[Rfam]
RNA sequence: AAGAGCACACUCCUUUGAUUUAGUUUCGACACUUUAAUCAUACUAGGUUGUGUGCUUUUUGUGU
Numbered sequence: 001a002a003g004a005g006c007a008c009a010c011u012c013c014u015u016u017g018a019u020u021u022a023g024u025u026u027c028g029a030c031a032c033u034u035u036a037a038u039c040a041u042a043c044u045a046g047g048u049u050g051u052g053u054g055c056u057u058u059u060u061g062u063g064u
Base pairs, nucleotide, nucleotide: 001057002056003055005053006052007051008050009049012047013046014045017039018038019037020036022034023032024031
Enterococcus sRNA 64: a 64-nucleotide RNA sequence from Enterococcus rivorum. The source organism's lineage runs through Bacteria, Bacillati, Bacillota, Enterococcaceae and Enterococcus. It scores 47 bits against the family's covariance model.